Shown here is a 252-nucleotide RNA from Trifolium subterraneum, a member of the family "MIR2655 microRNA precursor family". Lineage of the source: Eukaryota > Spermatophyta > fabids > Fabales > Trifolium. A search with the family's covariance model found it, with a score of 146 bits. Gene Ontology terms of the family: RISC complex and miRNA-mediated post-transcriptional gene silencing.

[Rfam]
RNA sequence: CCCUUAUCUUUUAAAAGUUUCAAGUUGGUCCCUUAUCUUUAUUUUAGGUUUUAAAUUGGUCCCUUCCGUCAAUUUUUUUACUGUUACUGUUAAAAUUGGACACGUGUCAUCUGUCCAAGUGUGCCACGUGUCCAAAUUAGUUUGCCAUGUGUCCAAAUUUAACGGAAAUAGUUAAAAAAUUGACGGAAGGGACCAACUUGAAACCUAAAAUAAAGAUAAGGGACCAACUUGAAACUUUUAAAAGAUAAGGGA
Dot-bracket structure: .(((((((..............(((.(((.(((((((((((((.(((.............................................................................................................................................................))).))))))))))))).))).)))..............)))))))..
Numbered sequence: 001c002c003c004u005u006a007u008c009u010u011u012u013a014a015a016a017g018u019u020u021c022a023a024g025u026u027g028g029u030c031c032c033u034u035a036u037c038u039u040u041a042u043u044u045u046a047g048g049u050u051u052u053a054a055a056u057u058g059g060u061c062c063c064u065u066c067c068g069u070c071a072a073u074u075u076u077u078u079u080a081c082u083g084u085u086a087c088u089g090u091u092a093a094a095a096u097u098g099g100a101c102a103c104g105u106g107u108c109a110u111c112u113g114u115c116c117a118a119g120u121g122u123g124c125c126a127c128g129u130g131u132c133c134a135a136a137u138u139a140g141u142u143u144g145c146c147a148u149g150u151g152u153c154c155a156a157a158u159u160u161a162a163c164g165g166a167a168a169u170a171g172u173u174a175a176a177a178a179a180u181u182g183a184c185g186g187a188a189g190g191g192a193c194c195a196a197c198u199u200g201a202a203a204c205c206u207a208a209a210a211u212a213a214a215g216a217u218a219a220g221g222g223a224c225c226a227a228c229u230u231g232a233a234a235c236u237u238u239u240a241a242a243a244g245a246u247a248a249g250g251g252a
Stems, first nucleotide, its partner, number of pairs: 002250007023229003027225003031221013045207003